[Rfam]
RNA sequence: UACAUCUCACUCCAGACCCUGCCUGAACAUUAAAUACGCUAAGUAAUCGUUUGCCUUUACACACCCCGAUCGCAACAUCAGGGUUGCGGCACGCCGGGAAAACGACACGGAACGUCAGGAAGGGGUCAAUGGCCGGUACGCUAAACAAGUAAGCGUCGAAUUUUGGCUGAUCUUAACGAAAAGGGGAAGUGUUAAAAACAGAUAUCACUCUAAAACAUGGGAGAUUUUUACCGUCAAGUGUGCAAAAAUGCGCUAUAUCACUUUUUGUGUGGGUAUAAAAAGGAGAAAACUUGAUGAGCACCGAUCUGAAAUUUUCAUUAAUCACCACGUUUAUUGUUCUGGCCCUGAUUGUUGCGGGUGGUUUAACCGCAGCGCUGCACUGAUUC
Numbered sequence: 001u002a003c004a005u006c007u008c009a010c011u012c013c014a015g016a017c018c019c020u021g022c023c024u025g026a027a028c029a030u031u032a033a034a035u036a037c038g039c040u041a042a043g044u045a046a047u048c049g050u051u052u053g054c055c056u057u058u059a060c061a062c063a064c065c066c067c068g069a070u071c072g073c074a075a076c077a078u079c080a081g082g083g084u085u086g087c088g089g090c091a092c093g094c095c096g097g098g099a100a101a102a103c104g105a106c107a108c109g110g111a112a113c114g115u116c117a118g119g120a121a122g123g124g125g126u127c128a129a130u131g132g133c134c135g136g137u138a139c140g141c142u143a144a145a146c147a148a149g150u151a152a153g154c155g156u157c158g159a160a161u162u163u164u165g166g167c168u169g170a171u172c173u174u175a176a177c178g179a180a181a182a183g184g185g186g187a188a189g190u191g192u193u194a195a196a197a198a199c200a201g202a203u204a205u206c207a208c209u210c211u212a213a214a215a216c217a218u219g220g221g222a223g224a225u226u227u228u229u230a231c232c233g234u235c236a237a238g239u240g241u242g243c244a245a246a247a248a249u250g251c252g253c254u255a256u257a258u259c260a261c262u263u264u265u266u267g268u269g270u271g272g273g274u275a276u277a278a279a280a281a282g283g284a285g286a287a288a289a290c291u292u293g294a295u296g297a298g299c300a301c302c303g304a305u306c307u308g309a310a311a312u313u314u315u316c317a318u319u320a321a322u323c324a325c326c327a328c329g330u331u332u333a334u335u336g337u338u339c340u341g342g343c344c345c346u347g348a349u350u351g352u353u354g355c356g357g358g359u360g361g362u363u364u365a366a367c368c369g370c371a372g373c374g375c376u377g378c379a380c381u382g383a384u385u386c
Stems, first nucleotide, its partner, number of pairs: 015127006028119001030117001032115001038090003041056001043054004072087005094110003138192005146158001148156001167183002171179002262281001264279001266277003
The family of this 386-nucleotide sequence from Citrobacter rodentium is "Enterobacterial sRNA STnc550". It is annotated as a small RNA. The family's consensus secondary structure was predicted with CMfinder. It scores 395 bits against the family's covariance model.